[Rfam]
RNA sequence: UUGCAAAUUCAAGGCCAAAGCAGAAGCACGGAUGGCACAGCCUGUCAGAUUCCAACAAAUCUGCAAAUUCUGCU
Numbered sequence: 001u002u003g004c005a006a007a008u009u010c011a012a013g014g015c016c017a018a019a020g021c022a023g024a025a026g027c028a029c030g031g032a033u034g035g036c037a038c039a040g041c042c043u044g045u046c047a048g049a050u051u052c053c054a055a056c057a058a059a060u061c062u063g064c065a066a067a068u069u070c071u072g073c074u
Stems, first nucleotide, its partner, number of pairs: 013042003019074007026038001046063006
The record is a 74-nucleotide RNA sequence from Alligator sinensis, which matches "Mammalian CPEB3 ribozyme" in Rfam. Lineage of the source: Eukaryota > Craniata > Crocodylia > Alligatorinae > Alligator. Pairs were carried over by alignment from the consensus structure, which is taken from published work. A search with the family's covariance model found it, with a score of 38 bits.